[Rfam]
RNA sequence: CGUGGGGGUGAUGAGUUGCACUGCUAUAACGGGGCGCUGGCUGCAGUGGCGGCCGCGCCCCAGCCGACCCCCUGCUGGGGACACCCCACGUGCACAGGGGCCACCUGACUCGCG
Numbered sequence: 001c002g003u004g005g006g007g008g009u010g011a012u013g014a015g016u017u018g019c020a021c022u023g024c025u026a027u028a029a030c031g032g033g034g035c036g037c038u039g040g041c042u043g044c045a046g047u048g049g050c051g052g053c054c055g056c057g058c059c060c061c062a063g064c065c066g067a068c069c070c071c072c073u074g075c076u077g078g079g080g081a082c083a084c085c086c087c088a089c090g091u092g093c094a095c096a097g098g099g100g101c102c103a104c105c106u107g108a109c110u111c112g113c114g
Stems, first nucleotide, its partner, number of pairs: 004113001006111003027066001031061002034058003040053005
The record is a 114-nucleotide RNA sequence from Gadus morhua, which matches "Small nucleolar RNA SNORD67" in Rfam. The pairing is the family consensus, mapped onto this sequence. Rfam classes the family as a C/D-box small nucleolar RNA. Rfam describes the family as follows. snoRNA HBII-166 belongs to the C/D family of snoRNAs. The family has 15 seed sequences and 781 matches in Rfam 15.1. Taxonomically the source falls in Gadus (Eukaryota, Opisthokonta, Deuterostomia, Craniata). For this family Rfam cites "RNomics: an experimental approach that identifies 201 candidates for novel, small, non-messenger RNAs in mouse" (Huttenhofer et al., EMBO J, 2001).